[Rfam]
RNA sequence: CAAAAAAGAACUCCGACGGGUAGGAGCGGGGGAACCACUCUCGUGAACGCCACACCAGGCGUUCUUGGGGUGAAGCAGAGCCCACAAACUCUGCCGGGCGCAAAACUUCCCAGGCCAACGGCCACGCCCGAACCCGACAGCUAACUCCGCAGGCGUGAUGGGAAGGAACG
Numbered sequence: 001c002a003a004a005a006a007a008g009a010a011c012u013c014c015g016a017c018g019g020g021u022a023g024g025a026g027c028g029g030g031g032g033a034a035c036c037a038c039u040c041u042c043g044u045g046a047a048c049g050c051c052a053c054a055c056c057a058g059g060c061g062u063u064c065u066u067g068g069g070g071u072g073a074a075g076c077a078g079a080g081c082c083c084a085c086a087a088a089c090u091c092u093g094c095c096g097g098g099c100g101c102a103a104a105a106c107u108u109c110c111c112a113g114g115c116c117a118a119c120g121g122c123c124a125c126g127c128c129c130g131a132a133c134c135c136g137a138c139a140g141c142u143a144a145c146u147c148c149g150c151a152g153g154c155g156u157g158a159u160g161g162g163a164a165g166g167a168a169c170g
Stems, first nucleotide, its partner, number of pairs: 001023001026150006036067002068135003076093004096129004
Dot-bracket structure: (.....................)..((((((....((............................))(((.....((((..........))))..((((..........................))))...))).........))))))....................